[Rfam]
RNA sequence: UCAUUAUUAAUAGAGCAGGCGAUACACUUGAUCUUCGGGUGUGUGGGGCUGGGUUGGCGUUUGCCGGCAGCAGGUAAAUACCUGUGGGACUAUA
Numbered sequence: 001u002c003a004u005u006a007u008u009a010a011u012a013g014a015g016c017a018g019g020c021g022a023u024a025c026a027c028u029u030g031a032u033c034u035u036c037g038g039g040u041g042u043g044u045g046g047g048g049c050u051g052g053g054u055u056g057g058c059g060u061u062u063g064c065c066g067g068c069a070g071c072a073g074g075u076a077a078a079u080a081c082c083u084g085u086g087g088g089a090c091u092a093u094a
Stems, first nucleotide, its partner, number of pairs: 010093004016088001018050003022044008053068005070085006
RNA: NiCo (Nickel/Cobalt) riboswitch aptamer